[Rfam]
RNA sequence: CGCAUGGGGUUCAACUGCGAACGCCCCGUGAGGCGCAAGCCGCAGGUUCGCAUGUUUCCGCACAAAAAGGAUGCAUGCCAUG
Number, nucleotide and partner (000 for none) at each position: 001c000002g000003c000004a000005u028006g027007g026008g025009g024010u023011u000012c000013a000014a000015c000016u000017g000018c000019g000020a000021a000022c000023g010024c009025c008026c007027c006028g005029u000030g000031a000032g000033g000034c000035g000036c000037a000038a000039g000040c000041c000042g000043c000044a000045g000046g000047u000048u000049c000050g078051c077052a076053u075054g074055u073056u000057u000058c000059c000060g000061c000062a000063c000064a000065a000066a000067a000068a000069g000070g000071a000072u000073g055074c054075a053076u052077g051078c050079c000080a000081u000082g000

About this RNA: Rfam assigns this 82-nucleotide sequence from Sulfitobacter sp. JL08 to the family "chrB-a RNA".